[Rfam]
The record is an 81-nucleotide sequence, which matches "nrdJ RNA" in Rfam.
RNA sequence: UUUUGCUGGGGGGCGGCUGUGCGGCUCCCCGGUAUCGGAACAGCAAUGUGUUGCGGGAAGAACGCGGCAUUUCAGGGCGUU
Numbered sequence: 001u002u003u004u005g006c007u008g009g010g011g012g013g014c015g016g017c018u019g020u021g022c023g024g025c026u027c028c029c030c031g032g033u034a035u036c037g038g039a040a041c042a043g044c045a046a047u048g049u050g051u052u053g054c055g056g057g058a059a060g061a062a063c064g065c066g067g068c069a070u071u072u073c074a075g076g077g078c079g080u081u
Base pairs, nucleotide, nucleotide: 004034005033006032007031008030009029010028011027012026013025014024016022048070049069050068051067052066053065054064055063
Overview:
It is annotated as a small RNA.